The record is a 48-nucleotide sequence from Aquimixticola soesokkakensis, which matches "Xanthine riboswitch aptamer (NMT1 RNA)" in Rfam. On this family, see Xu et al., Nucleic Acids Res 2021: "Insights into xanthine riboswitch structure and metal ion-mediated ligand recognition". The family's consensus secondary structure is taken from published work. Lineage of the source: Bacteria > Alphaproteobacteria > Rhodobacterales > Paracoccaceae > Aquimixticola.

[Rfam]
RNA sequence: CUCCGGAGUAGAAGCAGUCAGCGCAAAGGCGCGGUCAUUGCUCCGGUC
Numbered sequence: 001c002u003c004c005g006g007a008g009u010a011g012a013a014g015c016a017g018u019c020a021g022c023g024c025a026a027a028g029g030c031g032c033g034g035u036c037a038u039u040g041c042u043c044c045g046g047u048c
Base pairs, nucleotide, nucleotide: 005044006043007042008041009040010039015033019034021032022031023030024029